[Rfam]
RNA: Bacterial large subunit ribosomal RNA, nucleotides 9 to 600
RNA sequence: GCGAAAAGGGCGUUUGGUGAAUGCCUUGGCAGUAAGAGGCGAUGAAAGACGUGAUACUCUGCGAUAAGUCAUGGGGAGCUGAGAAUAAGCUUUGAUCCAUGAAUUUCUGAAUGGGGCAACCCACCUGAUACUGUGUUAUUUAUACUACCAGACAGACGUUGUUUGCGGGUUCGCCCUCAAGUAGCGCUCCGCGCGGUAGGGCAAAAUAAUAUGGUAAACCAGGUAUUUUUAGGCUGAAUAUAUAGGCUUAAAAAAGCAAACCCGGGGAACUGAAACAUCUAAGUACCCGGAGGAAAGGAAAUCAAUAUGAUACUCCCCUAGUAGCGGCGAGCGAACGGGGACCAGCCGAGCCAUGAUUGUGGUUAGAAUGCGUUGGAAUGCGCAACCAAAGUGGGUGAUAGUCCCGUAUAAGAAGCAUGAUUGGACGUAUUAAGUAGGGCGGAACACGUGAAAUUCUGUCUGAAGAUCGGAGGACCACCUUCGAAGGCUAAGUACUCCUUACUGACCGAUAGUGAACCAGUACCGUGAGGGAAAGGUGAAAAGCACCCCGACGAGGGGAGUGAAACAGUACCUGAAACCGAACGCCUACAAU
Numbered sequence: 001g002c003g004a005a006a007a008g009g010g011c012g013u014u015u016g017g018u019g020a021a022u023g024c025c026u027u028g029g030c031a032g033u034a035a036g037a038g039g040c041g042a043u044g045a046a047a048g049a050c051g052u053g054a055u056a057c058u059c060u061g062c063g064a065u066a067a068g069u070c071a072u073g074g075g076g077a078g079c080u081g082a083g084a085a086u087a088a089g090c091u092u093u094g095a096u097c098c099a100u101g102a103a104u105u106u107c108u109g110a111a112u113g114g115g116g117c118a119a120c121c122c123a124c125c126u127g128a129u130a131c132u133g134u135g136u137u138a139u140u141u142a143u144a145c146u147a148c149c150a151g152a153c154a155g156a157c158g159u160u161g162u163u164u165g166c167g168g169g170u171u172c173g174c175c176c177u178c179a180a181g182u183a184g185c186g187c188u189c190c191g192c193g194c195g196g197u198a199g200g201g202c203a204a205a206a207u208a209a210u211a212u213g214g215u216a217a218a219c220c221a222g223g224u225a226u227u228u229u230u231a232g233g234c235u236g237a238a239u240a241u242a243u244a245g246g247c248u249u250a251a252a253a254a255a256g257c258a259a260a261c262c263c264g265g266g267g268a269a270c271u272g273a274a275a276c277a278u279c280u281a282a283g284u285a286c287c288c289g290g291a292g293g294a295a296a297g298g299a300a301a302u303c304a305a306u307a308u309g310a311u312a313c314u315c316c317c318c319u320a321g322u323a324g325c326g327g328c329g330a331g332c333g334a335a336c337g338g339g340g341a342c343c344a345g346c347c348g349a350g351c352c353a354u355g356a357u358u359g360u361g362g363u364u365a366g367a368a369u370g371c372g373u374u375g376g377a378a379u380g381c382g383c384a385a386c387c388a389a390a391g392u393g394g395g396u397g398a399u400a401g402u403c404c405c406g407u408a409u410a411a412g413a414a415g416c417a418u419g420a421u422u423g424g425a426c427g428u429a430u431u432a433a434g435u436a437g438g439g440c441g442g443a444a445c446a447c448g449u450g451a452a453a454u455u456c457u458g459u460c461u462g463a464a465g466a467u468c469g470g471a472g473g474a475c476c477a478c479c480u481u482c483g484a485a486g487g488c489u490a491a492g493u494a495c496u497c498c499u500u501a502c503u504g505a506c507c508g509a510u511a512g513u514g515a516a517c518c519a520g521u522a523c524c525g526u527g528a529g530g531g532a533a534a535g536g537u538g539a540a541a542a543g544c545a546c547c548c549c550g551a552c553g554a555g556g557g558g559a560g561u562g563a564a565a566c567a568g569u570a571c572c573u574g575a576a577a578c579c580g581a582a583c584g585c586c587u588a589c590a591a592u
Stems, first nucleotide, its partner, number of pairs: 008587010023572001024536002028507002030504007037496002039257002047108003050063003069102007078090003113122003123224005129218001226254005232248004261292001262290005272279002302310002313492001314341005324332002344489004352423002358417002363411003369384005387391001393405003437461008468483005523530002546558004